[Rfam]
RNA sequence: UCACGCACAGGGCAAACCAUUCGAAAGGGUGGGACGCAAAGCCUCCGGCCUGAACCAUAAUACUAUAUGGAAGGUAGCGGGGUUACCGAU
Numbered sequence: 001u002c003a004c005g006c007a008c009a010g011g012g013c014a015a016a017c018c019a020u021u022c023g024a025a026a027g028g029g030u031g032g033g034a035c036g037c038a039a040a041g042c043c044u045c046c047g048g049c050c051u052g053a054a055c056c057a058u059a060a061u062a063c064u065a066u067a068u069g070g071a072a073g074g075u076a077g078c079g080g081g082g083u084u085a086c087c088g089a090u
Stems, first nucleotide, its partner, number of pairs: 012037002017032006040084004045080003048075003055070004
RNA: c-di-GMP-I riboswitch aptamer